UnaL2 LINE 3' element: a 54-nucleotide RNA sequence from Bagarius yarrelli. It scores 55 bits against the family's covariance model.
Nucleotides: 054
Stems, first nucleotide, its partner, number of pairs: 013043001014041003020036006
Number, partner (000 for none) and nucleotide at each position: 001000a002000a003000a004000u005000g006000a007000a008000a009000u010000g011000a012000a013043u014041g015040u016039a017000a018000g019000u020036u021035g022034c023033u024032u025031u026000g027000g028000a029000u030000a031025a032024g033023a034022g035021c036020a037000u038000c039016u040015g041014c042000c043013a044000a045000a046000u047000g048000c049000u050000g051000u052000a053000a054000a